RNA: PyrR binding site
RNA sequence: AUUUCCUUUAAUCUGGUCCAGAGAGGCUAAAAAGGGUGGAAAUGUAAAUAUUAUGAUUGUAUAGUAUUUUAAAUGCCCUUUUGUCCUAUUGGACGGAAGGGCAUUUAUU
Numbered sequence: 001a002u003u004u005c006c007u008u009u010a011a012u013c014u015g016g017u018c019c020a021g022a023g024a025g026g027c028u029a030a031a032a033a034g035g036g037u038g039g040a041a042a043u044g045u046a047a048a049u050a051u052u053a054u055g056a057u058u059g060u061a062u063a064g065u066a067u068u069u070u071a072a073a074u075g076c077c078c079u080u081u082u083g084u085c086c087u088a089u090u091g092g093a094c095g096g097a098a099g100g101g102c103a104u105u106u107a108u109u
Base pairs, nucleotide, nucleotide: 004036005035006034007033008032009031014029015028016027017026018025046069047068048067049066050065051064052063053062054061055060073104074103075102076101077100078099079098080097081096082095083094084093085092086091